[Rfam]
RNA sequence: UUUUCCGUGUUUACACUUGUUAAAACAAGGCUUUUGCGGAAUCACCAAUUUUGCCUGAACGUUGACUCGCGCAGCAAUGGCGUAAGACGUUGUGAGCGUUCAGGCAGUUAACGGGCUGCGGGUUGCAGACCUUACCGGCAUACGGAAUCUUCUCUGGCACUCUCUAUCCAGGCUGUUCCCAGGAUUAAAUGCGCUGUUUUUCCGGCUGAAAAACAGGCUGCCGAUACUUUGCGCCUCAUAGCAUUCGACAACCGGGAGGUUGACGAUUUUGCGAACAGUCACGAGGCCAUCGGCUUACAUCCGGUAAAACGUACCACGCCCGCCGCUCUGUCGCCAA
Numbered sequence: 001u002u003u004u005c006c007g008u009g010u011u012u013a014c015a016c017u018u019g020u021u022a023a024a025a026c027a028a029g030g031c032u033u034u035u036g037c038g039g040a041a042u043c044a045c046c047a048a049u050u051u052u053g054c055c056u057g058a059a060c061g062u063u064g065a066c067u068c069g070c071g072c073a074g075c076a077a078u079g080g081c082g083u084a085a086g087a088c089g090u091u092g093u094g095a096g097c098g099u100u101c102a103g104g105c106a107g108u109u110a111a112c113g114g115g116c117u118g119c120g121g122g123u124u125g126c127a128g129a130c131c132u133u134a135c136c137g138g139c140a141u142a143c144g145g146a147a148u149c150u151u152c153u154c155u156g157g158c159a160c161u162c163u164c165u166a167u168c169c170a171g172g173c174u175g176u177u178c179c180c181a182g183g184a185u186u187a188a189a190u191g192c193g194c195u196g197u198u199u200u201u202c203c204g205g206c207u208g209a210a211a212a213a214c215a216g217g218c219u220g221c222c223g224a225u226a227c228u229u230u231g232c233g234c235c236u237c238a239u240a241g242c243a244u245u246c247g248a249c250a251a252c253c254g255g256g257a258g259g260u261u262g263a264c265g266a267u268u269u270u271g272c273g274a275a276c277a278g279u280c281a282c283g284a285g286g287c288c289a290u291c292g293g294c295u296u297a298c299a300u301c302c303g304g305u306a307a308a309a310c311g312u313a314c315c316a317c318g319c320c321c322g323c324c325g326c327u328c329u330g331u332c333g334c335c336a337a
Stems, first nucleotide, its partner, number of pairs: 003041006016029005051107008062096002065093001069090003074081002113328004118323006132307007144179005153172005191218002194216004199211004220294005233287005246265002249262005
RNA: RNase E 5' UTR element
Organism: Tenebrionibacter intestinalis